[Rfam]
RNA sequence: GGGUGUCAGCAUCGGUGUUCGAUGCUACAGGUUCAUGCGAUGGUCGGGCCGCCAUUG
Number, nucleotide and partner (000 for none) at each position: 001g000002g000003g000004u000005g028006u027007c000008a026009g025010c024011a023012u022013c000014g000015g000016u000017g000018u000019u000020c000021g000022a012023u011024g010025c009026u008027a006028c005029a000030g000031g000032u000033u000034c000035a000036u000037g000038c057039g056040a055041u054042g053043g052044u051045c000046g000047g000048g000049c000050c000051g044052c043053c042054a041055u040056u039057g038
nhaA-I RNA: a 57-nucleotide RNA sequence from Formivibrio citricus.
Rfam describes the family as follows. Acidobacteria, Alphaproteobacteria, Betaproteobacteria and Gammaproteobacteria, Verrucomicrobia, cand. division NC10.
A search with the family's covariance model found it, with a score of 50 bits.
It is annotated as a riboswitch.
The source organism's lineage runs through Bacteria, Pseudomonadati, Pseudomonadota, Neisseriales and Formivibrio.
The base pairs follow the family's consensus structure, which is taken from published work.